[Rfam]
RNA: mir-8364 microRNA precursor family
RNA sequence: UCUUCAUUUCACACACUCACUCACCGGUCAGAGAAGCGAGAGAGUAUGCGAAAUGAAGAGA
Numbered sequence: 001u002c003u004u005c006a007u008u009u010c011a012c013a014c015a016c017u018c019a020c021u022c023a024c025c026g027g028u029c030a031g032a033g034a035a036g037c038g039a040g041a042g043a044g045u046a047u048g049c050g051a052a053a054u055g056a057a058g059a060g061a
Stems, first nucleotide, its partner, number of pairs: 001059007010050001012048002015045003020040003